RNA sequence: AAAUGUAAGCAGAAGCCAUCCGCUUCUCACCUUACGACGCUCCGGCUGUCAGUAGGGUUGCUAACUUAAACGCAAGAGUAGAAAUAUGCGUUCAUGCGGGUGGUAUAGACCAUCCGUUUUUUAUUUAUAGG
Numbered sequence: 001a002a003a004u005g006u007a008a009g010c011a012g013a014a015g016c017c018a019u020c021c022g023c024u025u026c027u028c029a030c031c032u033u034a035c036g037a038c039g040c041u042c043c044g045g046c047u048g049u050c051a052g053u054a055g056g057g058u059u060g061c062u063a064a065c066u067u068a069a070a071c072g073c074a075a076g077a078g079u080a081g082a083a084a085u086a087u088g089c090g091u092u093c094a095u096g097c098g099g100g101u102g103g104u105a106u107a108g109a110c111c112a113u114c115c116g117u118u119u120u121u122u123a124u125u126u127a128u129a130g131g
Stems, first nucleotide, its partner, number of pairs: 011027006029058003036050003039046002096117009
Ribosomal protein L20 leader: a 131-nucleotide RNA from Allolucifera butyrica. Rfam classes the family as a cis-regulatory leader. The base pairs follow the family's consensus structure, which was predicted with CMfinder. From the family's description: This family is a putative r-protein leader autoregulatory structure found in B. subtilis and other low-GC Gram-positive bacteria.